[Rfam]
RNA sequence: AAGCUCCUUGAUGUGCUUAAUGUUGGCAGAUACCGAACCAAUCCCCUAGUGGUUCGGCUUAACUCCGAACUUUCCUCCCCAAUUUGAAGUUCGGAGUUUUUUUUGCCUGUUU
Numbered sequence: 001a002a003g004c005u006c007c008u009u010g011a012u013g014u015g016c017u018u019a020a021u022g023u024u025g026g027c028a029g030a031u032a033c034c035g036a037a038c039c040a041a042u043c044c045c046c047u048a049g050u051g052g053u054u055c056g057g058c059u060u061a062a063c064u065c066c067g068a069a070c071u072u073u074c075c076u077c078c079c080c081a082a083u084u085u086g087a088a089g090u091u092c093g094g095a096g097u098u099u100u101u102u103u104u105g106c107c108u109g110u111u112u
Stems, first nucleotide, its partner, number of pairs: 033057008061100002063096011

The family of this 112-nucleotide sequence from Thiopseudomonas alkaliphila is "Pseudomon-1/ErsA RNA". The literature on the family includes a 2015 paper in Environ Microbiol by Ferrara et al., "Post-transcriptional regulation of the virulence-associated enzyme AlgC by the sigma(22) -dependent small RNA ErsA of Pseudomonas aeruginosa". Gene Ontology terms of the family: mRNA binding, positive regulation of translation, ncRNA-mediated and response to antibiotic. Lineage of the source: Bacteria > Pseudomonadati > Pseudomonadota > Pseudomonadales > Thiopseudomonas. From the family's description: Functions to regulate the AlgC enzyme.